[Rfam]
mir-30 microRNA precursor family: a 76-nucleotide sequence from Lepisosteus oculatus.
A reference for the family is Mourelatos et al. (2002), "miRNPs: a novel class of ribonucleoproteins containing numerous microRNAs", Genes Dev.
Taxonomically the source falls in Lepisosteus (Eukaryota, Opisthokonta, Chordata, Craniata).
RNA sequence: AUAGUUAGUGUAAACAUCCUACACUCAGCUGUAACUUCAAAGUAAAGGCUGGGAGAAGGGUGUUUACUUUGACUAG
Number, nucleotide and partner (000 for none) at each position: 001a000002u075003a074004g073005u072006u071007a000008g069009u000010g067011u066012a065013a064014a063015c062016a061017u060018c059019c058020u057021a000022c055023a000024c053025u052026c051027a050028g049029c048030u047031g000032u000033a000034a000035c000036u000037u000038c000039a000040a000041a000042g000043u000044a000045a000046a000047g030048g029049c028050u027051g026052g025053g024054a000055g022056a000057a020058g019059g018060g017061u016062g015063u014064u013065u012066a011067c010068u000069u008070u000071g006072a005073c004074u003075a002076g000